[Rfam]
RNA sequence: GGAUCCCGUGCGGCGUUUAUCUUGUGAACUCCCCCAGGGCAGGAAUGCAGCAAGGGUCAGCGAGCUCUGACGGGUGCGCGGGAUCCCCUU
Numbered sequence: 001g002g003a004u005c006c007c008g009u010g011c012g013g014c015g016u017u018u019a020u021c022u023u024g025u026g027a028a029c030u031c032c033c034c035c036a037g038g039g040c041a042g043g044a045a046u047g048c049a050g051c052a053a054g055g056g057u058c059a060g061c062g063a064g065c066u067c068u069g070a071c072g073g074g075u076g077c078g079c080g081g082g083a084u085c086c087c088c089u090u
Stems, first nucleotide, its partner, number of pairs: 001086010011074001014072004021064005031056003039048003
Record summary:
The record is a 90-nucleotide sequence from Corynebacterium efficiens, which matches "Bacterial small signal recognition particle RNA" in Rfam. The sequence is in the family's curated seed alignment. Rfam links the family to the GO terms signal recognition particle, plasma membrane targeting and SRP-dependent cotranslational protein targeting to membrane, signal sequence recognition. By type it is a non-coding RNA gene. The family's consensus secondary structure is taken from published work.